Rfam assigns this 119-nucleotide RNA from Actinidia chinensis to the family "Small nucleolar RNA Z278". A search with the family's covariance model found it, with a score of 61 bits. Rfam's curators write: snoZ278 is a C/D box small nucleolar RNA. Its methylation guide targets have not been reported. Rfam 15.1 lists 1,130 matches to the family in 214 species. A reference for the family is Chen et al. (2003), "The high diversity of snoRNAs in plants: identification and comparative study of 120 snoRNA genes from Oryza sativa", Nucleic Acids Res. Lineage of the source: Eukaryota > Viridiplantae > Magnoliopsida > Pentapetalae > Actinidia chinensis. The family's RNA type in Rfam is C/D-box small nucleolar RNA.
[Rfam]
RNA sequence: GUCUGUGAUGAAACUAUCCAAUGUUUUUGAGGUGUAACUGGCCCCAAGCCCCUGUUUUCAGGGAGAACCUACUUGGGGUUACUGCAUUCAAGUAUGAAAUUAUUGGAUCUAUCUGAGAC
Dot-bracket structure: (((..............................................(((((....))))).....................................................)))